The family of this 265-nucleotide RNA from bacterium HR32 is "Bacterial large signal recognition particle RNA". Rfam's curators write: The signal recognition particle (SRP) is a universally conserved ribonucleoprotein involved in the co-translational targeting of proteins to membranes.

RNA sequence: CCGUGCUAGGCGGGGAGCUGGCGGUUCCCUGUACCCUCGACCCGCCACAGAGGGGCUGAACUCCCGCCCGAGGCCGCGUGCCUACGGGUCCGGUCCGCGGGGCCGGUGAGGACGGUCGGGUCCUGCGCAACGGGAGCCUGCGAACCCCGCCAGGUCCGGAAGGAAGCAACGGUAAGCAGCCCCUCCCGUGUGCCGCAGGUGCACCUGGCCGGAGCCGGACACGCGGGUACCGCCGCGGUCGCGCGGGUCGACGGCGGGUGCACGG
Numbered sequence: 001c002c003g004u005g006c007u008a009g010g011c012g013g014g015g016a017g018c019u020g021g022c023g024g025u026u027c028c029c030u031g032u033a034c035c036c037u038c039g040a041c042c043c044g045c046c047a048c049a050g051a052g053g054g055g056c057u058g059a060a061c062u063c064c065c066g067c068c069c070g071a072g073g074c075c076g077c078g079u080g081c082c083u084a085c086g087g088g089u090c091c092g093g094u095c096c097g098c099g100g101g102g103c104c105g106g107u108g109a110g111g112a113c114g115g116u117c118g119g120g121u122c123c124u125g126c127g128c129a130a131c132g133g134g135a136g137c138c139u140g141c142g143a144a145c146c147c148c149g150c151c152a153g154g155u156c157c158g159g160a161a162g163g164a165a166g167c168a169a170c171g172g173u174a175a176g177c178a179g180c181c182c183c184u185c186c187c188g189u190g191u192g193c194c195g196c197a198g199g200u201g202c203a204c205c206u207g208g209c210c211g212g213a214g215c216c217g218g219a220c221a222c223g224c225g226g227g228u229a230c231c232g233c234c235g236c237g238g239u240c241g242c243g244c245g246g247g248u249c250g251a252c253g254g255c256g257g258g259u260g261c262a263c264g265g
Stems, first nucleotide, its partner, number of pairs: 001265006009057003012030008034054005063258006072249004078242003082238002085235003091232002095226005104218001105216003113211009122199006128190002131188005136181001138179004147172003155164003